This 129-nucleotide sequence from Vitis vinifera belongs to the Rfam family "Small nucleolar RNA snoR74".
RNA sequence: GAAAAAGCAGAAUUCUAUUAUACCUUUAUGAAAGGGCUUAUUGCUUGCUUCAGGGAAAUCCUGACAUUCUUCAUGGGUGAACCCAUAUUGUUCUUGGUGAUUGAAGGUUCAGUAAAUCAUGGUAAAUUU
Numbered sequence: 001g002a003a004a005a006a007g008c009a010g011a012a013u014u015c016u017a018u019u020a021u022a023c024c025u026u027u028a029u030g031a032a033a034g035g036g037c038u039u040a041u042u043g044c045u046u047g048c049u050u051c052a053g054g055g056a057a058a059u060c061c062u063g064a065c066a067u068u069c070u071u072c073a074u075g076g077g078u079g080a081a082c083c084c085a086u087a088u089u090g091u092u093c094u095u096g097g098u099g100a101u102u103g104a105a106g107g108u109u110c111a112g113u114a115a116a117u118c119a120u121g122g123u124a125a126a127u128u129u
Stems, first nucleotide, its partner, number of pairs: 005050003011039002014036003065121003070116002078111006
Source information
The family has 9 seed sequences and 1,404 matches in Rfam 15.1.